[Rfam]
RNA sequence: UAGGCAAUAAAAGCCUAUUAAUCUGCAUGUUAAUAGUCUGCUCUUUGGCCGGACAGACGGUUAGUGAGUG
Numbered sequence: 001u002a003g004g005c006a007a008u009a010a011a012a013g014c015c016u017a018u019u020a021a022u023c024u025g026c027a028u029g030u031u032a033a034u035a036g037u038c039u040g041c042u043c044u045u046u047g048g049c050c051g052g053a054c055a056g057a058c059g060g061u062u063a064g065u066g067a068g069u070g
Base pairs, nucleotide, nucleotide: 001017002016003015004014005013030064031063032062033061034060036058037057038056039055040054042053043052044051
Rfam assigns this 70-nucleotide RNA sequence to the family "L13-Bacteroidia ribosomal protein leader". It is one of the family's seed sequences. A reference for the family is Eckert and Weinberg (2020), "Discovery of 20 novel ribosomal leader candidates in bacteria and archaea", BMC Microbiol. It is annotated as a cis-regulatory leader.